[Rfam]
RNA sequence: CGCAAAUGAUGACUUAUAUUUGCUACUCUUGAGAGUAAUGACGAAAAAUAAUAUCACCAAGAUACCACUGAAGUGCG
Numbered sequence: 001c002g003c004a005a006a007u008g009a010u011g012a013c014u015u016a017u018a019u020u021u022g023c024u025a026c027u028c029u030u031g032a033g034a035g036u037a038a039u040g041a042c043g044a045a046a047a048a049u050a051a052u053a054u055c056a057c058c059a060a061g062a063u064a065c066c067a068c069u070g071a072a073g074u075g076c077g
Stems, first nucleotide, its partner, number of pairs: 001077004